Rfam assigns this 134-nucleotide RNA sequence from Molossus molossus to the family "U11 spliceosomal RNA". Taxonomically the source falls in Molossus (Eukaryota, Metazoa, Yangochiroptera, Molossidae). The base pairs follow the family's consensus structure, which is taken from published work. The family is grouped with related families in Rfam's "U1 clan".
[Rfam]
RNA sequence: AAAAAGGGCUUCUGUUGUGAGUGGCACACGUAGAGCAGCUUGAUCGCUCUAUGUGUGGAAUCAACAUCAAGAGAUUUUGGAAGCAUACUUUUUUGGUACUUGGGCAGCCGGUGAUCCUUGGUCCUGGCACCCAU
Numbered sequence: 001a002a003a004a005a006g007g008g009c010u011u012c013u014g015u016u017g018u019g020a021g022u023g024g025c026a027c028a029c030g031u032a033g034a035g036c037a038g039c040u041u042g043a044u045c046g047c048u049c050u051a052u053g054u055g056u057g058g059a060a061u062c063a064a065c066a067u068c069a070a071g072a073g074a075u076u077u078u079g080g081a082a083g084c085a086u087a088c089u090u091u092u093u094u095g096g097u098a099c100u101u102g103g104g105c106a107g108c109c110g111g112u113g114a115u116c117c118u119u120g121g122u123c124c125u126g127g128c129a130c131c132c133a134u
Stems, first nucleotide, its partner, number of pairs: 008084005013026005027055010038044001056079007102132003107128005113123004